[Rfam]
RNA sequence: CGCCAGGCUACCCGACGGGGGAAAAAGCGGGAACCUUCGCCCGCCUGCCUGGUGCCCAUGAAUGAAGG
Numbered sequence: 001c002g003c004c005a006g007g008c009u010a011c012c013c014g015a016c017g018g019g020g021g022a023a024a025a026a027g028c029g030g031g032a033a034c035c036u037u038c039g040c041c042c043g044c045c046u047g048c049c050u051g052g053u054g055c056c057c058a059u060g061a062a063u064g065a066a067g068g
Stems, first nucleotide, its partner, number of pairs: 001054008011021003027044005034068006
Shown here is a 68-nucleotide RNA from Thiomonas sp. X19, a member of the family "int-alpA RNA". Rfam describes the family as follows. Acidobacteria (1 example), Planctomycetes (1 example), Proteobacteria. The family's RNA type in Rfam is small RNA.